[Rfam]
The record is a 133-nucleotide RNA from Jaculus jaculus, which matches "Small nucleolar RNA SNORA9" in Rfam. Pairs were carried over by alignment from the consensus structure, which was predicted with PFOLD.
RNA sequence: AAGCAAGUCUCCAGUGUGCUCAGGUUUGCAGUGACCCUGUGCAUUGCUACAGUGCUUGUCAGAGAAGUUCUGAAAUGGUCUGAGGCCUUUCUCUACCCUCUCCAGAACAAGGGUACAGAAAUUUCAGGCAAUU
Numbered sequence: 001a002a003g004c005a006a007g008u009c010u011c012c013a014g015u016g017u018g019c020u021c022a023g024g025u026u027u028g029c030a031g032u033g034a035c036c037c038u039g040u041g042c043a044u045u046g047c048u049a050c051a052g053u054g055c056u057u058g059u060c061a062g063a064g065a066a067g068u069u070c071u072g073a074a075a076u077g078g079u080c081u082g083a084g085g086c087c088u089u090u091c092u093c094u095a096c097c098c099u100c101u102c103c104a105g106a107a108c109a110a111g112g113g114u115a116c117a118g119a120a121a122u123u124u125c126a127g128g129c130a131a132u133u
Stems, first nucleotide, its partner, number of pairs: 003059006017043003023036004071126005086112004093105002
Dot-bracket structure: ..((((((........(((...((((......))))....)))..........))))))...........(((((..........((((...((.........))...)))).........))))).......
It is annotated as an H/ACA-box small nucleolar RNA. ACA9 is a member of the H/ACA class of snoRNA that guide the sites of modification of uridines to pseudouridines.